Nucleotides: 184
Base pairs, nucleotide, nucleotide: 006179007178008177009176010175011174016080017079018078019077020076021075022074023073024072031065032064033063034062035061036060038058084113085112086111087110088109089108090107091106092105093104094103095102114140115139117137118136119135120134121133122132123131124130142169143168144167145166146165147164148163149162150161151160
Number, partner (000 for none) and nucleotide at each position: 001000u002000g003000g004000u005000g006179a007178g008177g009176u010175a011174g012000a013000g014000g015000c016080g017079c018078g019077a020076u021075a022074u023073u024072u025000a026000a027000c028000a029000g030000u031065c032064c033063u034062u035061a036060g037000a038058g039000g040000a041000g042000u043000u044000u045000g046000a047000g048000a049000a050000a051000g052000c053000u054000u055000u056000g057000a058038u059000a060036c061035u062034a063033g064032g065031g066000a067000g068000a069000a070000g071000g072024a073023a074022a075021u076020g077019u078018c079017g080016c081000c082000g083000a084113a085112g086111u087110g088109a089108g090107u091106a092105a093104u094103a095102u096000u097000u098000c099000u100000c101000g102095g103094u104093a105092u106091u107090a108089c109088u110087u111086g112085c113084u114140g115139g116000g117137u118136c119135u120134g121133u122132a123131g124130u125000u126000a127000a128000g129000a130124a131123c132122u133121g134120c135119a136118g137117g138000a139115c140114u141000g142169u143168c144167u145166c146165a147164a148163u149162a150161a151160a152000c153000g154000u155000c156000c157000c158000g159000g160151u161150u162149u163148a164147u165146u166145g167144a168143g169142g170000u171000g172000u173000g174011c175010u176009a177008u178007c179006u180000c181000a182000u183000u184000u

Rfam assigns this 184-nucleotide RNA sequence from Paenisporosarcina sp. HGH0030 to the family "Lysine riboswitch aptamer". Its family is annotated with lysine biosynthetic process in the Gene Ontology. Rfam describes the family as follows. Riboswitches are metabolite binding domains within certain messenger RNAs that serve as precision sensors for their corresponding targets. Allosteric rearrangement of mRNA structure is mediated by ligand binding, and this results in modulation of gene expression. This family includes riboswitches that sense lysine in a number of genes involved in lysine metabolism, including lysC. A search with the family's covariance model found it, with a score of 115 bits. NCBI's taxonomy places the organism under Bacteria, Bacillati, Caryophanales, Caryophanaceae, Paenisporosarcina.